Annotation:
Rfam assigns this 129-nucleotide RNA sequence from Urocolius indicus to the family "Small nucleolar RNA SNORA65". The organism belongs to Urocolius, within Eukaryota. U65 belongs to the H/ACA class of snoRNAs which are thought to guide the sites of modification of uridines to pseudouridines. Pairs were carried over by alignment from the consensus structure, which was predicted with RNAalifold.
[Rfam]
RNA sequence: CCUGCUACUGUACCCGUCCUGAACUCAGUGGCUGGUAUAUUCCAGUGGUGGGCUGAGAGGAAGCUCCAGCCUAGGAAGCAGCCCUCCUCUGCUUGUGGGGAGGCCUGUGCCGAAAGGCUGGCAACAAGC
Numbered sequence: 001c002c003u004g005c006u007a008c009u010g011u012a013c014c015c016g017u018c019c020u021g022a023a024c025u026c027a028g029u030g031g032c033u034g035g036u037a038u039a040u041u042c043c044a045g046u047g048g049u050g051g052g053c054u055g056a057g058a059g060g061a062a063g064c065u066c067c068a069g070c071c072u073a074g075g076a077a078g079c080a081g082c083c084c085u086c087c088u089c090u091g092c093u094u095g096u097g098g099g100g101a102g103g104c105c106u107g108u109g110c111c112g113a114a115a116g117g118c119u120g121g122c123a124a125c126a127a128g129c
Stems, first nucleotide, its partner, number of pairs: 005048006018035002021032001023029001066121003070116001072114001074111002079107003083103002087099003